[Rfam]
RNA sequence: CCCCCAGGGGGAAGCGAAGACCCUAUAGAGCUUUACUGCAGGCUGUCGCUGAGACAUGGUCGCCAAUGUGCAGCAUAGGUAGGAGCCGUUACACAGGUAUCCGCGCCAGCGGAUCACCGAGGCAUCAGUGAAAUACUACCCGUUGGUGACUGUGACUCUCACUCCGGGAGGAGAACACCGGUAGCCGGGCAGUUUGACUGGGGCGGUACGCGCUCGAAAAGAUAUCGAGCGCGCCCAAAGGUUUCCUCACGUGAGUCGGAAACUCACAGAAGAGCGCAAGAGCACACGGAAGCCUGACAGUGAUCUUCCCAACGAGGAUCGCUGACGCGAAAGCGUGGUUUAGCGAACCAACGAGACCCAGCGAUGGGGUCCGUUGAUGACAGAAAAGCUACCUUAGGGAUAACAGAGUCGUCACCCGCAAGAGCACAUAUCGACCGGGUGGCUUGCUACCUCGAUGUCGGUUCCCUCCAUCCUGCCUGUGCAGAUGCAGGCAAGGGUGAGGUUGUUCGCCUAUUAAAGGAGGUCGUGAGCUGGGUUUAGACCGUCGUGAGACAGGUCGGCUGCUAUCUACUGGGGGUGUCAA
Numbered sequence: 001c002c003c004c005c006a007g008g009g010g011g012a013a014g015c016g017a018a019g020a021c022c023c024u025a026u027a028g029a030g031c032u033u034u035a036c037u038g039c040a041g042g043c044u045g046u047c048g049c050u051g052a053g054a055c056a057u058g059g060u061c062g063c064c065a066a067u068g069u070g071c072a073g074c075a076u077a078g079g080u081a082g083g084a085g086c087c088g089u090u091a092c093a094c095a096g097g098u099a100u101c102c103g104c105g106c107c108a109g110c111g112g113a114u115c116a117c118c119g120a121g122g123c124a125u126c127a128g129u130g131a132a133a134u135a136c137u138a139c140c141c142g143u144u145g146g147u148g149a150c151u152g153u154g155a156c157u158c159u160c161a162c163u164c165c166g167g168g169a170g171g172a173g174a175a176c177a178c179c180g181g182u183a184g185c186c187g188g189g190c191a192g193u194u195u196g197a198c199u200g201g202g203g204c205g206g207u208a209c210g211c212g213c214u215c216g217a218a219a220a221g222a223u224a225u226c227g228a229g230c231g232c233g234c235c236c237a238a239a240g241g242u243u244u245c246c247u248c249a250c251g252u253g254a255g256u257c258g259g260a261a262a263c264u265c266a267c268a269g270a271a272g273a274g275c276g277c278a279a280g281a282g283c284a285c286a287c288g289g290a291a292g293c294c295u296g297a298c299a300g301u302g303a304u305c306u307u308c309c310c311a312a313c314g315a316g317g318a319u320c321g322c323u324g325a326c327g328c329g330a331a332a333g334c335g336u337g338g339u340u341u342a343g344c345g346a347a348c349c350a351a352c353g354a355g356a357c358c359c360a361g362c363g364a365u366g367g368g369g370u371c372c373g374u375u376g377a378u379g380a381c382a383g384a385a386a387a388g389c390u391a392c393c394u395u396a397g398g399g400a401u402a403a404c405a406g407a408g409u410c411g412u413c414a415c416c417c418g419c420a421a422g423a424g425c426a427c428a429u430a431u432c433g434a435c436c437g438g439g440u441g442g443c444u445u446g447c448u449a450c451c452u453c454g455a456u457g458u459c460g461g462u463u464c465c466c467u468c469c470a471u472c473c474u475g476c477c478u479g480u481g482c483a484g485a486u487g488c489a490g491g492c493a494a495g496g497g498u499g500a501g502g503u504u505g506u507u508c509g510c511c512u513a514u515u516a517a518a519g520g521a522g523g524u525c526g527u528g529a530g531c532u533g534g535g536u537u538u539a540g541a542c543c544g545u546c547g548u549g550a551g552a553c554a555g556g557u558c559g560g561c562u563g564c565u566a567u568c569u570a571c572u573g574g575g576g577g578u579g580u581c582a583a
Base pairs, nucleotide, nucleotide: 001577002576003575004574005573006572007571010569011568012567014564015563022398023397024396025395027394028393029390030389031388032387033386035193036192037191038190042185043184044183045182046181047180048179051158052157053156055154056153057152058151059150060149061148062147063146064145065144066143067142068141078140079139080138081137082136085123086122087121100113101112102111103110104109162173163172164171165170196209197207198206199205210232211231212230213229214228215227235338236337241293242292243291244290245289246288247273248272251267252266253265254264255263274283275282298324299323300322301321302320303319304318305317306316326335328333349376350375351374352373353372355371356370357369358368359367407448408447409446411445412442413441414440415439416438417437418436422432423431459534460532461531462530463529464526465523466522467521468520469519472497473496476491477490478489479488480487500512501511502510503509540558541557542556543555544553545552546551
The record is a 583-nucleotide part of an RNA from Haloquadratum sp. J07HQX50, which matches "Archaeal large subunit ribosomal RNA" in Rfam. Rfam links the family to the GO terms ribosome and structural constituent of ribosome. NCBI's taxonomy places the organism under Archaea, Methanobacteriati, Methanobacteriota, Halobacteriales, Haloquadratum.